[Rfam]
RNA sequence: UUGUUGGCAGCGCUCUUGAGUCAUUGUUAAACAAAUUAAGCCUCGACCAUACGUUGCCAUAAAGUUAAUCGCAUCUGCCGAAAUAUGCUCGGCAGCGAUAAUUA
Numbered sequence: 001u002u003g004u005u006g007g008c009a010g011c012g013c014u015c016u017u018g019a020g021u022c023a024u025u026g027u028u029a030a031a032c033a034a035a036u037u038a039a040g041c042c043u044c045g046a047c048c049a050u051a052c053g054u055u056g057c058c059a060u061a062a063a064g065u066u067a068a069u070c071g072c073a074u075c076u077g078c079c080g081a082a083a084u085a086u087g088c089u090c091g092g093c094a095g096c097g098a099u100a101a102u103u104a
Stems, first nucleotide, its partner, number of pairs: 003058001005056004009028004014023001035050002041045001066104004071096002075092003079087002

The record is a 104-nucleotide RNA sequence from Pseudoalteromonas sp. A25, which matches "Vibrio RNA AS9" in Rfam. A search with the family's covariance model found it, with a score of 58 bits. Rfam classes the family as an antisense RNA. The base pairs follow the family's consensus structure, which was predicted with RNAfold. Identified by direct cloning an parallel sequencing experiments with 5S/tRNA depletion. The literature on the family includes a 2009 paper in Nucleic Acids Res by Liu et al., "Experimental discovery of sRNAs in Vibrio cholerae by direct cloning, 5S/tRNA depletion and parallel sequencing".